RNA sequence: GCCCGUCGCUACUACCGAUGGAUUAUUUAGUGAGGUCUUUGAAGGUGAACAUUUGCUAGUCCUUCCCGGAUUACAUUUGAAUCGCUGAAGUUGACCGAACUUGAUGAUUUAGAGGAAGUAAAAGUCGUAACAAGGUUUCUGUAGGUGAACCUGCGGAAGGAUCAUUA
Numbered sequence: 001g002c003c004c005g006u007c008g009c010u011a012c013u014a015c016c017g018a019u020g021g022a023u024u025a026u027u028u029a030g031u032g033a034g035g036u037c038u039u040u041g042a043a044g045g046u047g048a049a050c051a052u053u054u055g056c057u058a059g060u061c062c063u064u065c066c067c068g069g070a071u072u073a074c075a076u077u078u079g080a081a082u083c084g085c086u087g088a089a090g091u092u093g094a095c096c097g098a099a100c101u102u103g104a105u106g107a108u109u110u111a112g113a114g115g116a117a118g119u120a121a122a123a124g125u126c127g128u129a130a131c132a133a134g135g136u137u138u139c140u141g142u143a144g145g146u147g148a149a150c151c152u153g154c155g156g157a158a159g160g161a162u163c164a165u166u167a
Stems, first nucleotide, its partner, number of pairs: 001131001004127002007124001010120004015115002019111009029101003034096004136159010

This 167-nucleotide part of an RNA from Culex quinquefasciatus belongs to the Rfam family "Microsporidia small subunit ribosomal RNA". Clan: SSU clan. The family's consensus secondary structure is taken from published work.